[Rfam]
RNA sequence: GGGUGCUCUGGAUCUUUCCGUCUGGAGCAUUUGGUAAAGGAUGGAAAGAGAAAAGCCCCGGACCGAUUUACAUCAAUCCGAGGCCGAUCUCACUCCUAAGCAAGGUGAGGUUAGCCUCUUAAAAUCCCAAAAUCAAGGGACAAGGAGGUUAAGAAUG
Numbered sequence: 001g002g003g004u005g006c007u008c009u010g011g012a013u014c015u016u017u018c019c020g021u022c023u024g025g026a027g028c029a030u031u032u033g034g035u036a037a038a039g040g041a042u043g044g045a046a047a048g049a050g051a052a053a054a055g056c057c058c059c060g061g062a063c064c065g066a067u068u069u070a071c072a073u074c075a076a077u078c079c080g081a082g083g084c085c086g087a088u089c090u091c092a093c094u095c096c097u098a099a100g101c102a103a104g105g106u107g108a109g110g111u112u113a114g115c116c117u118c119u120u121a122a123a124a125u126c127c128c129a130a131a132a133u134c135a136a137g138g139g140a141c142a143a144g145g146a147g148g149u150u151a152a153g154a155a156u157g
Stems, first nucleotide, its partner, number of pairs: 001059003005056003009053001013049011027035002060079003065073001080118005086112009122149001126145002
RNA: sok antitoxin (CssrC)